[Rfam]
RNA: mir-193 microRNA precursor family
RNA sequence: GCCAGAGACUGGGUCUUUGCGGGCAAGGUGAGUUCCUCAGUCGGUCAACUGGCCUACAAAGUCCCAGUUUCUGGC
Numbered sequence: 001g002c003c004a005g006a007g008a009c010u011g012g013g014u015c016u017u018u019g020c021g022g023g024c025a026a027g028g029u030g031a032g033u034u035c036c037u038c039a040g041u042c043g044g045u046c047a048a049c050u051g052g053c054c055u056a057c058a059a060a061g062u063c064c065c066a067g068u069u070u071c072u073g074g075c
Stems, first nucleotide, its partner, number of pairs: 003073006010066004015061005021055004026050002029047002